This 213-nucleotide sequence from Streptomyces sp. BR123 belongs to the Rfam family "Streptomyces sRNA 4677". The match comes from Rfam's covariance-model search (54 bits). On this family, see Hindra et al., PLoS One 2014: "Complex intra-operonic dynamics mediated by a small RNA in Streptomyces coelicolor". Rfam 15.1 lists 563 matches to the family in 285 species.
RNA sequence: UGGUCCGCGGCGCCCUUCAGAGGAACGGGUGAGGACCCUCCCCACCAAACCCGGGGUGCCAACUCCGGUUGCCACACGAUCGGGUGAUGGGCGCGGCUUCGCUCCGCGUGGGUGGGGUACGGUCGCGGCAACAACCCCAUACAGACAGACGGCCCCCGACAGGACUGCAAUCCUGGCGAGGGCCUGACCGAUCCGGAAGAGAAGACCUUCCUG
Numbered sequence: 001u002g003g004u005c006c007g008c009g010g011c012g013c014c015c016u017u018c019a020g021a022g023g024a025a026c027g028g029g030u031g032a033g034g035a036c037c038c039u040c041c042c043c044a045c046c047a048a049a050c051c052c053g054g055g056g057u058g059c060c061a062a063c064u065c066c067g068g069u070u071g072c073c074a075c076a077c078g079a080u081c082g083g084g085u086g087a088u089g090g091g092c093g094c095g096g097c098u099u100c101g102c103u104c105c106g107c108g109u110g111g112g113u114g115g116g117g118u119a120c121g122g123u124c125g126c127g128g129c130a131a132c133a134a135c136c137c138c139a140u141a142c143a144g145a146c147a148g149a150c151g152g153c154c155c156c157c158g159a160c161a162g163g164a165c166u167g168c169a170a171u172c173c174u175g176g177c178g179a180g181g182g183c184c185u186g187a188c189c190g191a192u193c194c195g196g197a198a199g200a201g202a203a204g205a206c207c208u209u210c211c212u213g
Base pairs, nucleotide, nucleotide: 001191003189009060010059011058012057013056014055073086074085075084077082092127093126094125095124096123151184152183153182154181155180157178158177161174162173163172164171195211196210197209198208199207